The record is a 127-nucleotide RNA sequence from Mesocricetus auratus, which matches "Small nucleolar RNA SNORA61" in Rfam. The family's consensus secondary structure was predicted with PFOLD. About the family: ACA61 is a member of the H/ACA class of snoRNA that guide the sites of modification of uridines to pseudouridines.
[Rfam]
RNA sequence: CCCCUCUUCUUCCUUUUCCCAUUGGAUCCCAGGACUGGUCUCAAUGUCCUAAAGAGGAAGGGCAUCCUGAAACUGGCCUCCAGUGUUGUAGUCUGCUGCAGAGCGUGCAGGCCUGAUUCAAACAGGC
Numbered sequence: 001c002c003c004c005u006c007u008u009c010u011u012c013c014u015u016u017u018c019c020c021a022u023u024g025g026a027u028c029c030c031a032g033g034a035c036u037g038g039u040c041u042c043a044a045u046g047u048c049c050u051a052a053a054g055a056g057g058a059a060g061g062g063c064a065u066c067c068u069g070a071a072a073c074u075g076g077c078c079u080c081c082a083g084u085g086u087u088g089u090a091g092u093c094u095g096c097u098g099c100a101g102a103g104c105g106u107g108c109a110g111g112c113c114u115g116a117u118u119c120a121a122a123c124a125g126g127c
Base pairs, nucleotide, nucleotide: 003057004056005055006054007053020046021045022044023043025040026039027038028037073115075113076112077111078110079109087105088104089103